Rfam assigns this 91-nucleotide RNA from Glaesserella parasuis to the family "Selenocysteine transfer RNA". The match comes from Rfam's covariance-model search (79 bits). Gene Ontology term of the family: triplet codon-amino acid adaptor activity. For this family Rfam cites "tRNAscan-SE: a program for improved detection of transfer RNA genes in genomic sequence" (Lowe and Eddy, Nucleic Acids Res, 1997).
RNA sequence: GGAGGUGUGUCAUAUCCGGUGAUGUGGCAGGACUUCAAAUCCUGUUGAGGAUGCCAGCGUUCUCGGGUGGGUUCAACUCCCAUACGCCUCC
Dot-bracket structure: (((((((((.((((((....))))))((((((.......)))))).(((((........)))))...((((.......)))))))))))))